[Rfam]
RNA sequence: UUUGGUUUCGACGGGGAUACGUUGUACCUGAGAAGCGAGUCGAGGGAACCUGUGGACCCGCGUUAAAAAACUAUGGGAUUAAAUAUAAACGCUAAAAACGAUAAUUUAGCUUUAGCAGCCUAGUCUGCUACGUCCGCCUUUUGAGUCCCACGGCUUAAGGAUGGGCGUCGAUAGUGGGGAAACGAGUCUAGGAAAGCUUUGACCUAGAAACGGAAUUUAUGAAGCUACUAAAGUCAGAAGCCUGUCUUUCGGCGUCUGAUGGAGGGAAUGUCAAAGGAAAGACUGCACUCGGAGAUGCUUAGAUAUUACUAUUUUCGGACAGGGGUUCGAUUCA
Numbered sequence: 001u002u003u004g005g006u007u008u009c010g011a012c013g014g015g016g017a018u019a020c021g022u023u024g025u026a027c028c029u030g031a032g033a034a035g036c037g038a039g040u041c042g043a044g045g046g047a048a049c050c051u052g053u054g055g056a057c058c059c060g061c062g063u064u065a066a067a068a069a070a071c072u073a074u075g076g077g078a079u080u081a082a083a084u085a086u087a088a089a090c091g092c093u094a095a096a097a098a099c100g101a102u103a104a105u106u107u108a109g110c111u112u113u114a115g116c117a118g119c120c121u122a123g124u125c126u127g128c129u130a131c132g133u134c135c136g137c138c139u140u141u142u143g144a145g146u147c148c149c150a151c152g153g154c155u156u157a158a159g160g161a162u163g164g165g166c167g168u169c170g171a172u173a174g175u176g177g178g179g180a181a182a183c184g185a186g187u188c189u190a191g192g193a194a195a196g197c198u199u200u201g202a203c204c205u206a207g208a209a210a211c212g213g214a215a216u217u218u219a220u221g222a223a224g225c226u227a228c229u230a231a232a233g234u235c236a237g238a239a240g241c242c243u244g245u246c247u248u249u250c251g252g253c254g255u256c257u258g259a260u261g262g263a264g265g266g267a268a269u270g271u272c273a274a275a276g277g278a279a280a281g282a283c284u285g286c287a288c289u290c291g292g293a294g295a296u297g298c299u300u301a302g303a304u305a306u307u308a309c310u311a312u313u314u315u316c317g318g319a320c321a322g323g324g325g326u327u328c329g330a331u332u333c334a
Base pairs, nucleotide, nucleotide: 012317013316014315015314016313017312018311019310024306025305026304028302029301030300031299032298034296036291037290038289039288040287041062042061044059045058049077050076051075052074053073054072113130114129115128116127117126118125131167132166133165134164135163136162137160138159139158140157143156144155145154147178148177149176150175151174183212184211187208188207189206190205191204195226196225197224198223199222200221228265229264233260234259235258236257237256240253241252242251244283245282246281247280248278249277250276325333
This 334-nucleotide RNA from Clostridium pasteurianum belongs to the Rfam family "transfer-messenger RNA". Pairs were carried over by alignment from the consensus structure, which is taken from published work.